Shown here is a 76-nucleotide RNA from Xanthomonas campestris, a member of the family "Xanthomonas sRNA sX9". Rfam classes the family as a small RNA. A reference for the family is Schmidtke et al. (2011), "Genome-wide transcriptome analysis of the plant pathogen Xanthomonas identifies sRNAs with putative virulence functions", Nucleic Acids Res.
RNA sequence: AUGUACCACUCGUAUGCUCCGGCUCCUGCGCGCCGUCCGUGUCCACCUGGCGACCGCUGGCUACGUUUUUCUGGCU
Numbered sequence: 001a002u003g004u005a006c007c008a009c010u011c012g013u014a015u016g017c018u019c020c021g022g023c024u025c026c027u028g029c030g031c032g033c034c035g036u037c038c039g040u041g042u043c044c045a046c047c048u049g050g051c052g053a054c055c056g057c058u059g060g061c062u063a064c065g066u067u068u069u070u071c072u073g074g075c076u
Base pairs, nucleotide, nucleotide: 002016003015004014005013006012020035021034022033023032025030047074048073049072050071052069053068